RNA sequence: AGAAUAAAUAGAGAACCUCUAGUUAGUACGAAAGGACCAUUAGAGAGAAUUCCAUGGUGUAUCUGUUGUUGUAAUGUAAAUUAUGGCACCGCAGGGUAGCUACAAUUCUGAAAGAGAAGUGCUGAAGGCAUCUCAAGCGCGAAACAGAUCUCUAGAUAUUCUUUCAAAUAAGAAAAAGACUAUUUCUUAUUUUUAGGGUGUAAAUGUAUGUUUAACACUACUAAUGUAUUGAAAA
Numbered sequence: 001a002g003a004a005u006a007a008a009u010a011g012a013g014a015a016c017c018u019c020u021a022g023u024u025a026g027u028a029c030g031a032a033a034g035g036a037c038c039a040u041u042a043g044a045g046a047g048a049a050u051u052c053c054a055u056g057g058u059g060u061a062u063c064u065g066u067u068g069u070u071g072u073a074a075u076g077u078a079a080a081u082u083a084u085g086g087c088a089c090c091g092c093a094g095g096g097u098a099g100c101u102a103c104a105a106u107u108c109u110g111a112a113a114g115a116g117a118a119g120u121g122c123u124g125a126a127g128g129c130a131u132c133u134c135a136a137g138c139g140c141g142a143a144a145c146a147g148a149u150c151u152c153u154a155g156a157u158a159u160u161c162u163u164u165c166a167a168a169u170a171a172g173a174a175a176a177a178g179a180c181u182a183u184u185u186c187u188u189a190u191u192u193u194u195a196g197g198g199u200g201u202a203a204a205u206g207u208a209u210g211u212u213u214a215a216c217a218c219u220a221c222u223a224a225u226g227u228a229u230u231g232a233a234a235a
Base pairs, nucleotide, nucleotide: 001162002161003160004159011152012151013150014149017045018044019043020042021041022040023039046109047108048107049106050105051104055102056101057100062095063094064093065092066091067088068087069086070085071084072083073082074081075080114145119140120139121138122137123136164232167230168229169228170227171187172186173185174184175183194223195222196221197219198218199217200216201215202213203212204211